The record is a 74-nucleotide RNA sequence from Chelonoidis abingdonii, which matches "tRNA" in Rfam.
It is annotated as a transfer RNA.
The family's consensus secondary structure is taken from published work.
The match comes from Rfam's covariance-model search (59 bits).

RNA sequence: GGCACCAUGGCUUAGCUGGCUAAAGCAUCUGUUUUGUAAACAGGAGAUCCUCGGUUCAACUCCUAGUGGUGCCU
Numbered sequence: 001g002g003c004a005c006c007a008u009g010g011c012u013u014a015g016c017u018g019g020c021u022a023a024a025g026c027a028u029c030u031g032u033u034u035u036g037u038a039a040a041c042a043g044g045a046g047a048u049c050c051u052c053g054g055u056u057c058a059a060c061u062c063c064u065a066g067u068g069g070u071g072c073c074u
Stems, first nucleotide, its partner, number of pairs: 001073007010026004028044005050066002053063002